[Rfam]
RNA sequence: AGCUUUCUGAUGUUGAUGAUACUGCAUCAGGAACUGGCUGGAGAGCGACCAGAGGCCGGCGGUUCCUGAUGCAUUGCCUUCAGCACCAAAACA
Numbered sequence: 001a002g003c004u005u006u007c008u009g010a011u012g013u014u015g016a017u018g019a020u021a022c023u024g025c026a027u028c029a030g031g032a033a034c035u036g037g038c039u040g041g042a043g044a045g046c047g048a049c050c051a052g053a054g055g056c057c058g059g060c061g062g063u064u065c066c067u068g069a070u071g072c073a074u075u076g077c078c079u080u081c082a083g084c085a086c087c088a089a090a091a092c093a
Stems, first nucleotide, its partner, number of pairs: 023073005029067008039058003
RNA: mir-217 microRNA precursor family